[Rfam]
RNA: Small nucleolar RNA snoR136
RNA sequence: GUGGCUUCUUUUUAACUUUAGAACCAGAAAUUUGAAUAAAAUUAUUUGAGUUUUUGUUUUAUAAAGAAGCCUAAAUGGAGUUGUUCCCCUCGCUAUCCAUUGCUUCAAUCUGAUGGCGCAAUUGGACGUCGGGGAACUACAUCU
Numbered sequence: 001g002u003g004g005c006u007u008c009u010u011u012u013u014a015a016c017u018u019u020a021g022a023a024c025c026a027g028a029a030a031u032u033u034g035a036a037u038a039a040a041a042u043u044a045u046u047u048g049a050g051u052u053u054u055u056g057u058u059u060u061a062u063a064a065a066g067a068a069g070c071c072u073a074a075a076u077g078g079a080g081u082u083g084u085u086c087c088c089c090u091c092g093c094u095a096u097c098c099a100u101u102g103c104u105u106c107a108a109u110c111u112g113a114u115g116g117c118g119c120a121a122u123u124g125g126a127c128g129u130c131g132g133g134g135a136a137c138u139a140c141a142u143c144u
Stems, first nucleotide, its partner, number of pairs: 002073001003071003008066004013061001019056002026054004031050003036047001038045001083137007091128002096126004105116003
Dot-bracket structure: .((((..((((.(.....((.....((((.(((..(.(......).))))))))))....).))))..))).).........(((((((.((...((((.....(((......)))......))))))..))))))).......